[Rfam]
RNA sequence: UUUGUUGAUGGUCAUCUAUUCAUCAUAUCAUUUGGCAUAGUUUUUGCAACCAUUAAUAUGCCAUGAUUAGAUGAACAUCAACAAACA
Numbered sequence: 001u002u003u004g005u006u007g008a009u010g011g012u013c014a015u016c017u018a019u020u021c022a023u024c025a026u027a028u029c030a031u032u033u034g035g036c037a038u039a040g041u042u043u044u045u046g047c048a049a050c051c052a053u054u055a056a057u058a059u060g061c062c063a064u065g066a067u068u069a070g071a072u073g074a075a076c077a078u079c080a081a082c083a084a085a086c087a
Stems, first nucleotide, its partner, number of pairs: 001085010012074007020066004034062005040057003045052002
RNA: MIR827_2 microRNA precursor family